[Rfam]
RNA sequence: UCAAUCCUGCCCGGAAGGGCCAGCCCCCCGCCGGAAGCGAGUCUUGCCUAGUCAGCAGUGAUGCUGGCGGGAAGCGUAGACAGCGACUGUUAAAGGUAUGUAUUGAGCCUCGAAAGAUGUUUAUGUUCACUGGAGUCUUUGUUUUUAACAUUGCAGGGACAACACCAAAGCAGCGAUUACGGCGAGUUGCGGCGGUCCGGUCGGGGUCGGAGACCA
Numbered sequence: 001u002c003a004a005u006c007c008u009g010c011c012c013g014g015a016a017g018g019g020c021c022a023g024c025c026c027c028c029c030g031c032c033g034g035a036a037g038c039g040a041g042u043c044u045u046g047c048c049u050a051g052u053c054a055g056c057a058g059u060g061a062u063g064c065u066g067g068c069g070g071g072a073a074g075c076g077u078a079g080a081c082a083g084c085g086a087c088u089g090u091u092a093a094a095g096g097u098a099u100g101u102a103u104u105g106a107g108c109c110u111c112g113a114a115a116g117a118u119g120u121u122u123a124u125g126u127u128c129a130c131u132g133g134a135g136u137c138u139u140u141g142u143u144u145u146u147a148a149c150a151u152u153g154c155a156g157g158g159a160c161a162a163c164a165c166c167a168a169a170g171c172a173g174c175g176a177u178u179a180c181g182g183c184g185a186g187u188u189g190c191g192g193c194g195g196u197c198c199g200g201u202c203g204g205g206g207u208c209g210g211a212g213a214c215c216a
Stems, first nucleotide, its partner, number of pairs: 011034004017029003023183002037084002041081004045076002047071003052067006104210001105208001107207006129201006135160003140155003165195002170190005
RNA: Group II catalytic intron D1-D4-6